[Rfam]
RNA sequence: AUAGCGGUAUCCGAAAAGCUCACAGAGUAGGAA
Numbered sequence: 001a002u003a004g005c006g007g008u009a010u011c012c013g014a015a016a017a018g019c020u021c022a023c024a025g026a027g028u029a030g031g032a033a
Stems, first nucleotide, its partner, number of pairs: 003020003010032003